[Rfam]
RNA: lysM-Prevotella RNA
RNA sequence: CCGUUAGAAAGGGAUAUGAAAAUCUGUCCCGUGCCUAUAUGGCAUCUGAGUUUAGAAACAAAAUAAU
Numbered sequence: 001c002c003g004u005u006a007g008a009a010a011g012g013g014a015u016a017u018g019a020a021a022a023u024c025u026g027u028c029c030c031g032u033g034c035c036u037a038u039a040u041g042g043c044a045u046c047u048g049a050g051u052u053u054a055g056a057a058a059c060a061a062a063a064u065a066a067u
Base pairs, nucleotide, nucleotide: 011030012029013028014027015026016025032044033043034042035041
Dot-bracket structure: ..........((((((........)))))).((((.....)))).......................